[Rfam]
RNA sequence: UGUUUGCACUUAGCGGGAAGGGUAAGAACCUUCGACUAAGGUUCGACUCGAGCGCCAGCGAGAGAACGUUGCCGCAGGCAACGGCCCGAAGGGCGAGGAGAGAUAGCGACGAGUUAUCCUUCCCCCACCACCA
Numbered sequence: 001u002g003u004u005u006g007c008a009c010u011u012a013g014c015g016g017g018a019a020g021g022g023u024a025a026g027a028a029c030c031u032u033c034g035a036c037u038a039a040g041g042u043u044c045g046a047c048u049c050g051a052g053c054g055c056c057a058g059c060g061a062g063a064g065a066a067c068g069u070u071g072c073c074g075c076a077g078g079c080a081a082c083g084g085c086c087c088g089a090a091g092g093g094c095g096a097g098g099a100g101a102g103a104u105a106g107c108g109a110c111g112a113g114u115u116a117u118c119c120u121u122c123c124c125c126c127a128c129c130a131c132c133a
Stems, first nucleotide, its partner, number of pairs: 015124007023116001033095002036093002042090004049060002067083006
RNA: RtT RNA
Organism: Klebsiella pneumoniae